[Rfam]
RNA sequence: UGGCGUGCUUCUGUGUGGAAGACUAGUGAUUUUGUUGUUUUUAGAUAGAUGAAUUGACAACAAAUCACAGUCUGCCAUAUGGCACAGGCCU
Numbered sequence: 001u002g003g004c005g006u007g008c009u010u011c012u013g014u015g016u017g018g019a020a021g022a023c024u025a026g027u028g029a030u031u032u033u034g035u036u037g038u039u040u041u042u043a044g045a046u047a048g049a050u051g052a053a054u055u056g057a058c059a060a061c062a063a064a065u066c067a068c069a070g071u072c073u074g075c076c077a078u079a080u081g082g083c084a085c086a087g088g089c090c091u
Stems, first nucleotide, its partner, number of pairs: 002090003006086001009084001011082008020073005026068007034061006
RNA: mir-7 microRNA precursor family
Organism: Polypterus senegalus